The record is a 105-nucleotide RNA from Caenorhabditis japonica, which matches "Caenorhabditis snoRNA ceN69" in Rfam. Lineage of the source: Eukaryota > Bilateria > Rhabditina > Rhabditidae > Caenorhabditis. The match comes from Rfam's covariance-model search (86 bits). The literature on the family includes a 2007 paper in BMC Mol Biol by Jia et al., "Systematic identification of non-coding RNA 2,2,7-trimethylguanosine cap structures in Caenorhabditis elegans".
RNA sequence: GGCAGAAUGAUGAGUCGCUCGCAAUGGGUGACAAUAAGCCGAGUGUUAGCGAAUUACGGUUCGUGAUGAUCAUUUACUCAAAAGCGAUCUUGUGACCUGACUGCA
Numbered sequence: 001g002g003c004a005g006a007a008u009g010a011u012g013a014g015u016c017g018c019u020c021g022c023a024a025u026g027g028g029u030g031a032c033a034a035u036a037a038g039c040c041g042a043g044u045g046u047u048a049g050c051g052a053a054u055u056a057c058g059g060u061u062c063g064u065g066a067u068g069a070u071c072a073u074u075u076a077c078u079c080a081a082a083a084g085c086g087a088u089c090u091u092g093u094g095a096c097c098u099g100a101c102u103g104c105a
Stems, first nucleotide, its partner, number of pairs: 002104004